RNA sequence: CAUAGCGUUUCACAAUGUGCGCCAUUAACAUUGUUUAUGCAAGCACGUUUCGCAAUGUACGGCGCAGAAACAUUGCCAACACAAAUACGCUUCACGAUGUGCGGCACAGAAACAUCGC
Numbered sequence: 001c002a003u004a005g006c007g008u009u010u011c012a013c014a015a016u017g018u019g020c021g022c023c024a025u026u027a028a029c030a031u032u033g034u035u036u037a038u039g040c041a042a043g044c045a046c047g048u049u050u051c052g053c054a055a056u057g058u059a060c061g062g063c064g065c066a067g068a069a070a071c072a073u074u075g076c077c078a079a080c081a082c083a084a085a086u087a088c089g090c091u092u093c094a095c096g097a098u099g100u101g102c103g104g105c106a107c108a109g110a111a112a113c114a115u116c117g118c
Stems, first nucleotide, its partner, number of pairs: 006021003012034007046061003052076007088103003095117006
The record is a 118-nucleotide RNA sequence, which matches "Fusobacteriales-1 RNA" in Rfam.